The record is an 81-nucleotide RNA sequence from Variovorax sp., which matches "antisense RNA of dnaA mRNA" in Rfam. On this family, see Dadzie et al., PLoS One 2013: "Identification and characterization of a cis-encoded antisense RNA associated with the replication process of Salmonella enterica serovar Typhi". NCBI's taxonomy places the organism under Bacteria, Pseudomonadati, Betaproteobacteria, Comamonadaceae, Variovorax.
RNA sequence: UUUGGAAUCGGGCCGGUCGGCAAGUAAGCGGUUGCCCACCGCGUGCAUCAGGUGGGUCUUGCCCAGACCGACGCCGCCGUA
Numbered sequence: 001u002u003u004g005g006a007a008u009c010g011g012g013c014c015g016g017u018c019g020g021c022a023a024g025u026a027a028g029c030g031g032u033u034g035c036c037c038a039c040c041g042c043g044u045g046c047a048u049c050a051g052g053u054g055g056g057u058c059u060u061g062c063c064c065a066g067a068c069c070g071a072c073g074c075c076g077c078c079g080u081a
Stems, first nucleotide, its partner, number of pairs: 005042001010037004016032003020029002051078004056074002061072001063070001